[Rfam]
RNA sequence: AACCAGUGAUGAAGUUUUGAUUCUGCCAGAUGAGUUCUAAUGAUAUCAACCCCAUUCCGUUCCAUUUUCUGAGGUU
Numbered sequence: 001a002a003c004c005a006g007u008g009a010u011g012a013a014g015u016u017u018u019g020a021u022u023c024u025g026c027c028a029g030a031u032g033a034g035u036u037c038u039a040a041u042g043a044u045a046u047c048a049a050c051c052c053c054a055u056u057c058c059g060u061u062c063c064a065u066u067u068u069c070u071g072a073g074g075u076u
Stems, first nucleotide, its partner, number of pairs: 001076004
Overview: Shown here is a 76-nucleotide sequence from Varanus komodoensis, a member of the family "Small nucleolar RNA SNORD47". Rfam classes the family as a C/D-box small nucleolar RNA. Rfam 15.1 lists 755 matches to the family in 638 species. The source organism's lineage runs through Eukaryota, Chordata, Vertebrata, Episquamata and Varanus. It scores 66 bits against the family's covariance model. Gene Ontology terms of the family: RNA processing and nucleolus. For this family Rfam cites "Site-specific ribose methylation of preribosomal RNA: a novel function for small nucleolar RNAs" (Kiss-Laszlo et al., Cell, 1996).